[Rfam]
Rfam assigns this 125-nucleotide RNA sequence from Ammonifex degensii to the family "Molybdenum/Tungsten riboswitch aptamer (Moco RNA motif)". Taxonomically the source falls in Ammonifex degensii (Bacteria, Bacillati, Thermoanaerobacterales, Thermoanaerobacteraceae). Rfam 15.1 lists 1,248 matches to the family in 836 species.
Nucleotides: 125
Stems, first nucleotide, its partner, number of pairs: 003119001006116001011111006019061004023056006032048006067092006074085004093102002
Number, partner (000 for none) and nucleotide at each position: 001000u002000a003119u004000a005000u006116c007000a008000c009000a010000a011111g012110c013109c014108u015107c016106c017000g018000a019061g020060c021059c022058c023056g024055g025054u026053u027052c028051c029000u030000a031000a032048g033047g034046c035045u036044c037043u038000g039000a040000a041000c042000a043037a044036g045035g046034g047033c048032u049000a050000u051028g052027g053026g054025g055024c056023c057000a058022g059021g060020g061019c062000c063000g064000a065000u066000a067092g068091g069090g070089u071088g072087c073000u074085c075084c076083u077082g078000g079000a080000a081000a082077c083076g084075g085074g086000u087072g088071c089070g090069c091068c092067u093102c094101c095000c096000g097000g098000u099000g100000c101094g102093g103000a104000a105000a106016g107015g108014a109013g110012g111011u112000a113000g114000a115000g116006g117000a118000a119003a120000g121000g122000g123000a124000u125000u